[Rfam]
RNA sequence: AAGCUACACUCUGUGGCAGUUGCUAACCCAACUGUCCCAAUUUUAUGCUUGCUAGAGAAAUUCAAGUCCAUACUAUUUCAGUACUCCACUUGUAAGCUCUACUGUUGUAUUGACUUGAACACU
Numbered sequence: 001a002a003g004c005u006a007c008a009c010u011c012u013g014u015g016g017c018a019g020u021u022g023c024u025a026a027c028c029c030a031a032c033u034g035u036c037c038c039a040a041u042u043u044u045a046u047g048c049u050u051g052c053u054a055g056a057g058a059a060a061u062u063c064a065a066g067u068c069c070a071u072a073c074u075a076u077u078u079c080a081g082u083a084c085u086c087c088a089c090u091u092g093u094a095a096g097c098u099c100u101a102c103u104g105u106u107g108u109a110u111u112g113a114c115u116u117g118a119a120c121a122c123u
Base pairs, nucleotide, nucleotide: 009047012039013038015036017034018033019032020031021030022029064116065115066114067113068112070110074109075108076107079104080103081102082101089096090095